[Rfam]
RNA: Small nucleolar RNA SNORD34
RNA sequence: GGGGGCUUAUGAUGUUCGACAACUGCCUACAUUGUCAUAUUGUUUUGUGAAUGAGAAAAUGAUAGUUCUGAAGCCCCU
Numbered sequence: 001g002g003g004g005g006c007u008u009a010u011g012a013u014g015u016u017c018g019a020c021a022a023c024u025g026c027c028u029a030c031a032u033u034g035u036c037a038u039a040u041u042g043u044u045u046u047g048u049g050a051a052u053g054a055g056a057a058a059a060u061g062a063u064a065g066u067u068c069u070g071a072a073g074c075c076c077c078u
Stems, first nucleotide, its partner, number of pairs: 001078002004075004